Shown here is a 54-nucleotide RNA from Corynebacterium mustelae, a member of the family "L31-Corynebacteriaceae ribosomal protein leader". Its Rfam clan is "Ribosomal Protein L31 Leader clan". The sequence is in the family's curated seed alignment. It is annotated as a cis-regulatory leader. Taxonomically the source falls in Corynebacterium (Bacteria, Bacillati, Actinomycetota, Mycobacteriales). A reference for the family is Eckert and Weinberg (2020), "Discovery of 20 novel ribosomal leader candidates in bacteria and archaea", BMC Microbiol. The family's consensus secondary structure is taken from published work.

RNA sequence: ACUCAGGCACGAUCAAUAUUUAUUGAAGCGACCUGAAGUUUCAAUCCUGAGGGA
Numbered sequence: 001a002c003u004c005a006g007g008c009a010c011g012a013u014c015a016a017u018a019u020u021u022a023u024u025g026a027a028g029c030g031a032c033c034u035g036a037a038g039u040u041u042c043a044a045u046c047c048u049g050a051g052g053g054a
Stems, first nucleotide, its partner, number of pairs: 001039003004035004013026005
Dot-bracket structure: (((((((.....(((((....))))).....)))).)))...............